[Rfam]
This 345-nucleotide RNA sequence from Sphingomonas sp. AP4-R1 belongs to the Rfam family "Alphaproteobacteria transfer-messenger RNA". From the family's description: Bacterial tmRNA, also known as 10Sa RNA or SsrA, is named for its dual tRNA and mRNA-like properties. Its role is to liberate the mRNA from a stalled ribosome. To accomplish this part of the tmRNA is used as a reading frame that ends in a translation stop signal. The broken mRNA is replaced in the ribosome by the tmRNA and translation of the tmRNA leads to addition of a proteolysis tag to the incomplete protein enabling recognition by a protease. Lineage of the source: Bacteria > Pseudomonadati > Alphaproteobacteria > Sphingomonadaceae > Sphingomonas. On this family, see Felden et al., RNA 1997: "Probing the structure of the Escherichia coli 10Sa RNA (tmRNA)".
RNA sequence: CGCAUUGAAGCCGCAGGUUUUCGCGCCUAUAUCGGCCGUGCCGGGGUUCGCCCCGGCUAUGGCGAUAAAUGGUGCGACGUUUCGAAGCAGCGGACCCGGGGGCGGUACCCGGCGGCUCCACCAAAACUCCUGUCUUCGGGCAGGGGCUCUGAUGGGGCCGAACUAGGAUCGACGUGUUUGCGGGAUGCGUAUUUUUGCCCGGGCUGAGUAACCCGUUAAAGGCUCGAAACCACAAGUGCCAACGACAACGAGGCGCUCGCGAUUGCCGCGUAAUCAAGGCCUAACGGCUUAGAUUACAAGGCUUGAACGCGGUUCGGGCCACACCGGGCAACAGAAGUGGAUUCC
Numbered sequence: 001c002g003c004a005u006u007g008a009a010g011c012c013g014c015a016g017g018u019u020u021u022c023g024c025g026c027c028u029a030u031a032u033c034g035g036c037c038g039u040g041c042c043g044g045g046g047u048u049c050g051c052c053c054c055g056g057c058u059a060u061g062g063c064g065a066u067a068a069a070u071g072g073u074g075c076g077a078c079g080u081u082u083c084g085a086a087g088c089a090g091c092g093g094a095c096c097c098g099g100g101g102g103c104g105g106u107a108c109c110c111g112g113c114g115g116c117u118c119c120a121c122c123a124a125a126a127c128u129c130c131u132g133u134c135u136u137c138g139g140g141c142a143g144g145g146g147c148u149c150u151g152a153u154g155g156g157g158c159c160g161a162a163c164u165a166g167g168a169u170c171g172a173c174g175u176g177u178u179u180g181c182g183g184g185a186u187g188c189g190u191a192u193u194u195u196u197g198c199c200c201g202g203g204c205u206g207a208g209u210a211a212c213c214c215g216u217u218a219a220a221g222g223c224u225c226g227a228a229a230c231c232a233c234a235a236g237u238g239c240c241a242a243c244g245a246c247a248a249c250g251a252g253g254c255g256c257u258c259g260c261g262a263u264u265g266c267c268g269c270g271u272a273a274u275c276a277a278g279g280c281c282u283a284a285c286g287g288c289u290u291a292g293a294u295u296a297c298a299a300g301g302c303u304u305g306a307a308c309g310c311g312g313u314u315c316g317g318g319c320c321a322c323a324c325c326g327g328g329c330a331a332c333a334g335a336a337g338u339g340g341a342u343u344c345c
Base pairs, nucleotide, nucleotide: 040057041056042055043054044053045052046051061199062198063197064196065195071193072192073191074190075189076188086178087177088176090175091174092173096112097111098110099109100108113160114159115158116157117156118155119154200215201214202213203212205226206225207224310326311325312324313323316343317342319340320339